Rfam assigns this 70-nucleotide RNA from Intestinibaculum porci to the family "Fluoride riboswitch aptamer (crcB RNA motif)". The match comes from Rfam's covariance-model search (43 bits). The literature on the family includes a 2012 paper in Nature by Ren et al., "Fluoride ion encapsulation by Mg2+ ions and phosphates in a fluoride riboswitch". The organism belongs to Intestinibaculum, within Bacteria.
RNA sequence: GCGAACAACGGGAAUGAAGUUUCCCUGGCGUAUGCCGAACUGCUAGUGAGCUAAUGACUUCUAUUUUAAG
Numbered sequence: 001g002c003g004a005a006c007a008a009c010g011g012g013a014a015u016g017a018a019g020u021u022u023c024c025c026u027g028g029c030g031u032a033u034g035c036c037g038a039a040c041u042g043c044u045a046g047u048g049a050g051c052u053a054a055u056g057a058c059u060u061c062u063a064u065u066u067u068a069a070g
Base pairs, nucleotide, nucleotide: 010025011024012023013022016061017060018059019058020057021056042051043050044049